Overview:
This 86-nucleotide RNA sequence from Alicyclobacillus acidoterrestris belongs to the Rfam family "c-di-GMP-I riboswitch aptamer". The family's consensus secondary structure is taken from published work. Gene Ontology term of the family: cyclic-di-GMP binding. Taxonomically the source falls in Alicyclobacillus (Bacteria, Bacillati, Bacilli, Caryophanales).
RNA sequence: AUGAAUAGUUGGCAAACCAGAUGAAAAUCUGGGACGCAAAGCUACGGGUCUAAAGAUGUUUUGUCUAUGAUCGCCGGGUUGCACAU
Number, nucleotide and partner (000 for none) at each position: 001a000002u000003g000004a000005a000006u000007a000008g000009u000010u000011g000012g037013c036014a000015a000016a000017c032018c031019a030020g029021a028022u027023g000024a000025a000026a000027a022028u021029c020030u019031g018032g017033g000034a000035c000036g013037c012038a000039a000040a080041g079042c078043u077044a000045c076046g075047g074048g071049u070050c069051u000052a000053a000054a000055g065056a064057u063058g062059u000060u000061u000062u058063g057064u056065c055066u000067a000068u000069g050070a049071u048072c000073g000074c047075c046076g045077g043078g042079u041080u040081g000082c000083a000084c000085a000086u000